[Rfam]
RNA sequence: UUCUUAUCCAGAGAGGCAGAGGGACUGGCCCUAUGAAGCCUCAGCAACCGGCUGAUUUUUAUCAGCGAUGGUGCUAACUCCAGCAGGUUAAAAGCCUGACAGAUAAGAG
Numbered sequence: 001u002u003c004u005u006a007u008c009c010a011g012a013g014a015g016g017c018a019g020a021g022g023g024a025c026u027g028g029c030c031c032u033a034u035g036a037a038g039c040c041u042c043a044g045c046a047a048c049c050g051g052c053u054g055a056u057u058u059u060u061a062u063c064a065g066c067g068a069u070g071g072u073g074c075u076a077a078c079u080c081c082a083g084c085a086g087g088u089u090a091a092a093a094g095c096c097u098g099a100c101a102g103a104u105a106a107g108a109g
Stems, first nucleotide, its partner, number of pairs: 001109008013042005021031003025083004043075004048071002051066003079101001084098006